[Rfam]
RNA sequence: GAGGCAUAAUGAGGAAGAAGUAACAAAAAAUCCGACUUAUUGUGAUGAUCAAUCACCUCCUACUCAUUCUGA
Numbered sequence: 001g002a003g004g005c006a007u008a009a010u011g012a013g014g015a016a017g018a019a020g021u022a023a024c025a026a027a028a029a030a031u032c033c034g035a036c037u038u039a040u041u042g043u044g045a046u047g048a049u050c051a052a053u054c055a056c057c058u059c060c061u062a063c064u065c066a067u068u069c070u071g072a
Base pairs, nucleotide, nucleotide: 006067007066009064030049033044

Rfam assigns this 72-nucleotide RNA from Gossypium schwendimanii to the family "Small nucleolar RNA Z105". The source organism's lineage runs through Eukaryota, Viridiplantae, Streptophyta, Malvaceae and Gossypium. A search with the family's covariance model found it, with a score of 52 bits. Its family is annotated with nucleolus and RNA processing in the Gene Ontology.